[Rfam]
RNA sequence: ACAUUUGUAGGCGGGGUGGUGCGUCAAUAUAUAUAUGUCGUUUUUACCUAUAUUGCACACUUCCCGGCCUCUAAAUGC
Numbered sequence: 001a002c003a004u005u006u007g008u009a010g011g012c013g014g015g016g017u018g019g020u021g022c023g024u025c026a027a028u029a030u031a032u033a034u035a036u037g038u039c040g041u042u043u044u045u046a047c048c049u050a051u052a053u054u055g056c057a058c059a060c061u062u063c064c065c066g067g068c069c070u071c072u073a074a075a076u077g078c
Stems, first nucleotide, its partner, number of pairs: 002077006010069002014065001016063001020059002023056001025055007

Rfam assigns this 78-nucleotide sequence from Drosophila rhopaloa to the family "mir-310 microRNA precursor family". The family has 23 seed sequences and 60 matches in Rfam 15.1. Its family is annotated with head involution, response to nicotine and dorsal closure in the Gene Ontology. The organism belongs to Sophophora, within Eukaryota. Pairs were carried over by alignment from the consensus structure, which was predicted with RNAalifold. It scores 66 bits against the family's covariance model.